[Rfam]
RNA sequence: CACUAAGAAGCUAAUAUGGGUUAAGCACCAGCCUUUUAAGCUGGAAGCAGGUGACUCCCAACCACCCUUAAUGA
Numbered sequence: 001c002a003c004u005a006a007g008a009a010g011c012u013a014a015u016a017u018g019g020g021u022u023a024a025g026c027a028c029c030a031g032c033c034u035u036u037u038a039a040g041c042u043g044g045a046a047g048c049a050g051g052u053g054a055c056u057c058c059c060a061a062c063c064a065c066c067c068u069u070a071a072u073g074a
Stems, first nucleotide, its partner, number of pairs: 001073002004070004010026003028044005050066004